RNA sequence: UAACUAGCAGGGCAAACCAGUCGAAAGUCUGGGACGCAAAGCUUCCGGCCUAAAGGAAUCCUUCGGAUUUCCAUGGCAGCGGGGCCGCCUUC
Numbered sequence: 001u002a003a004c005u006a007g008c009a010g011g012g013c014a015a016a017c018c019a020g021u022c023g024a025a026a027g028u029c030u031g032g033g034a035c036g037c038a039a040a041g042c043u044u045c046c047g048g049c050c051u052a053a054a055g056g057a058a059u060c061c062u063u064c065g066g067a068u069u070u071c072c073a074u075g076g077c078a079g080c081g082g083g084g085c086c087g088c089c090u091u092c
Stems, first nucleotide, its partner, number of pairs: 012037002017032004022027001041085003045082003048077003055071006
Dot-bracket structure: ...........((...((((.(....).))))...))...(((.((((((....((((((.....))))))...)))..)))))).......
RNA: c-di-GMP-I riboswitch aptamer